[Rfam]
RNA sequence: UAAAUCUUUAAUACUAGUCCAGAGAGGCUAGGAAGGUUGUAAAUAUGGAUAAACUUAUUUAUAUAUGUCUAUAAUUAUGCCUUCCUAUCUUGGAAGGCUUUUUUAAU
Numbered sequence: 001u002a003a004a005u006c007u008u009u010a011a012u013a014c015u016a017g018u019c020c021a022g023a024g025a026g027g028c029u030a031g032g033a034a035g036g037u038u039g040u041a042a043a044u045a046u047g048g049a050u051a052a053a054c055u056u057a058u059u060u061a062u063a064u065a066u067g068u069c070u071a072u073a074a075u076u077a078u079g080c081c082u083u084c085c086u087a088u089c090u091u092g093g094a095a096g097g098c099u100u101u102u103u104u105a106a107u
Base pairs, nucleotide, nucleotide: 003038004037005036006035007034008033009032014031015030016029017028018027019026049072050071051070053068054067056065057064058063077100079098080097081096082095083094084093085092

This 107-nucleotide sequence from Tepidibacter thalassicus belongs to the Rfam family "PyrR binding site". From the family's description: This family represents the PyrR binding site and terminator structure. A search with the family's covariance model found it, with a score of 66 bits. For this family Rfam cites "Molecular recognition of pyr mRNA by the Bacillus subtilis attenuation regulatory protein PyrR" (Bonner et al., Nucleic Acids Res, 2001).